[Rfam]
RNA: nhaA-I RNA
RNA sequence: GGGUGCCCGCCACAUGCGGUGGUGAUGGCAGGUGAAUGUUCAUGUGCAAGUCGGGCCGCUUGCA
Number, nucleotide and partner (000 for none) at each position: 001g000002g000003g000004u000005g029006c028007c027008c024009g023010c022011c021012a020013c000014a000015u000016g000017c000018g000019g000020u012021g011022g010023u009024g008025a000026u000027g007028g006029c005030a000031g000032g000033u000034g000035a000036a000037u000038g000039u000040u000041c000042a000043u000044g000045u064046g063047c062048a061049a060050g059051u058052c000053g000054g000055g000056c000057c000058g051059c050060u049061u048062g047063c046064a045